[Rfam]
RNA sequence: UGAGUCGGCCGGGCGGCCGCGUCAGGACCUCGGUCCUGCCGAGGAACGUCCGGGCUCCACAGGGCAGGGUGGUGGCCAACAGCCACCCGGGGUGACCCGCGGGACAGUGCCACAGAAAGCAGACCGCCAGCCUUGGCUGGUAAGGGUGAAACGGUGGUGUAAGAGACCACCAGCGCCCCAGGCGACUGGGGCGGCUCGGUAAACCCCACCCGGAGCAAGCCCAGACAGCGCACGUUCGAGACCGGCCCGGUCGAGUGCGCGGGUAGGGCGCUGGAGCCGGUCAGCAAUGACCGGCCGAGAUGGAUGGCCGCCACCGCACCACCCGGUAACGGAGGUGCGGCACAGGACCCGGCGUACAGGCCGACUCAUCCA
Numbered sequence: 001u002g003a004g005u006c007g008g009c010c011g012g013g014c015g016g017c018c019g020c021g022u023c024a025g026g027a028c029c030u031c032g033g034u035c036c037u038g039c040c041g042a043g044g045a046a047c048g049u050c051c052g053g054g055c056u057c058c059a060c061a062g063g064g065c066a067g068g069g070u071g072g073u074g075g076c077c078a079a080c081a082g083c084c085a086c087c088c089g090g091g092g093u094g095a096c097c098c099g100c101g102g103g104a105c106a107g108u109g110c111c112a113c114a115g116a117a118a119g120c121a122g123a124c125c126g127c128c129a130g131c132c133u134u135g136g137c138u139g140g141u142a143a144g145g146g147u148g149a150a151a152c153g154g155u156g157g158u159g160u161a162a163g164a165g166a167c168c169a170c171c172a173g174c175g176c177c178c179c180a181g182g183c184g185a186c187u188g189g190g191g192c193g194g195c196u197c198g199g200u201a202a203a204c205c206c207c208a209c210c211c212g213g214a215g216c217a218a219g220c221c222c223a224g225a226c227a228g229c230g231c232a233c234g235u236u237c238g239a240g241a242c243c244g245g246c247c248c249g250g251u252c253g254a255g256u257g258c259g260c261g262g263g264u265a266g267g268g269c270g271c272u273g274g275a276g277c278c279g280g281u282c283a284g285c286a287a288u289g290a291c292c293g294g295c296c297g298a299g300a301u302g303g304a305u306g307g308c309c310g311c312c313a314c315c316g317c318a319c320c321a322c323c324c325g326g327u328a329a330c331g332g333a334g335g336u337g338c339g340g341c342a343c344a345g346g347a348c349c350c351g352g353c354g355u356a357c358a359g360g361c362c363g364a365c366u367c368a369u370c371c372a
Base pairs, nucleotide, nucleotide: 001368002367003366004365005364006363007362008361009360010359011357012312013311014310015309016308017307018306020041021040023038024037025036026035027034028033046355047354048353050352051351052350053349054348055215056214057213058212062248063247064246065245067211068210069209070208071207072086073085074084075083076082087101088099089098090097091096102206103205107204108203109200110199111198124145125144126141127140128139129138130137131136153171154170155169156168157167158166173195174193175192176191177190178189179188180187181186219269220268221267222266228260229259230258231257232256233255240252241251242250243249276295277294278293279292280291281290282289283288